[Rfam]
RNA sequence: GCACAAUUGGUUCGCAAAAUCCCAAUUAAAAAAACUAAGGAGGA
Numbered sequence: 001g002c003a004c005a006a007u008u009g010g011u012u013c014g015c016a017a018a019a020u021c022c023c024a025a026u027u028a029a030a031a032a033a034a035c036u037a038a039g040g041a042g043g044a
Stems, first nucleotide, its partner, number of pairs: 006026005016036001
Rfam assigns this 44-nucleotide RNA sequence to the family "PreQ1 (pre queuosine) riboswitch aptamer". It scores 48 bits against the family's covariance model. Its family is annotated with queuosine biosynthetic process in the Gene Ontology. This family is a bacterial riboswitch that binds to the metabolite preQ1, an intermediate in the biosynthesis of the modified nucleoside queuosine from GTP. One example of this riboswitch is located in the leader of the Bacillus subtilis ykvJKLM (queCDEF) operon which encodes four genes necessary for queuosine production. PreQ1 binding to the riboswitch aptamer is thought to induce premature transcription termination within the leader to down-regulate expression of these genes.